Nucleotides: 086
Stems, first nucleotide, its partner, number of pairs: 003055010015043001017074005027040004065079003
Number, partner (000 for none) and nucleotide at each position: 001000a002000a003055g004054g005053a006052u007051a008050g009049g010048a011047a012046g013000a014000a015043c016000u017074g018073a019072c020071g021070g022000a023000u024000u025000c026000u027040g028039u029038g030037g031000a032000a033000u034000u035000g036000a037030c038029c039028a040027c041000g042000u043015g044000a045000a046012c047011u048010u049009c050008c051007u052006a053005u054004u055003u056000c057000g058000a059000a060000a061000a062000c063000a064000a065079g066078c067077c068000g069000a070021c071020c072019g073018u074017c075000u076000g077067g078066g079065c080000a081000g082000g083000g084000a085000a086000a
This 86-nucleotide RNA sequence belongs to the Rfam family "ZMP/ZTP riboswitch aptamer (pfl RNA motif)". The family has 185 seed sequences and 3,295 matches in Rfam 15.1. Pairs were carried over by alignment from the consensus structure, which is taken from published work.